Shown here is a 153-nucleotide RNA from Ladona fulva, a member of the family "U12 minor spliceosomal RNA".
Rfam links the family to the GO terms mRNA branch site recognition, pre-mRNA branch point binding and U12 snRNP.
The pairing is the family consensus, mapped onto this sequence.
Lineage of the source: Eukaryota > Bilateria > Mandibulata > Epiprocta > Ladona.
RNA sequence: GUGCCUUAAACUAAUGAGUAAGGAAAAUACAGAGCUUUGGUGACGCUUGGCUCAGCUAGAAGAACCUAGCGUUCCCAAUUUUUGGAGAGGUACAGGUCGUCCCUUCGAGGUGCUGUCUACUUACACAGCACUUCGGGUGAAGCGAUCUCCCUC
Numbered sequence: 001g002u003g004c005c006u007u008a009a010a011c012u013a014a015u016g017a018g019u020a021a022g023g024a025a026a027a028u029a030c031a032g033a034g035c036u037u038u039g040g041u042g043a044c045g046c047u048u049g050g051c052u053c054a055g056c057u058a059g060a061a062g063a064a065c066c067u068a069g070c071g072u073u074c075c076c077a078a079u080u081u082u083u084g085g086a087g088a089g090g091u092a093c094a095g096g097u098c099g100u101c102c103c104u105u106c107g108a109g110g111u112g113c114u115g116u117c118u119a120c121u122u123a124c125a126c127a128g129c130a131c132u133u134c135g136g137g138u139g140a141a142g143c144g145a146u147c148u149c150c151c152u153c
Stems, first nucleotide, its partner, number of pairs: 004023005032053005039046001055070004087153004094148007103137002106135005112129005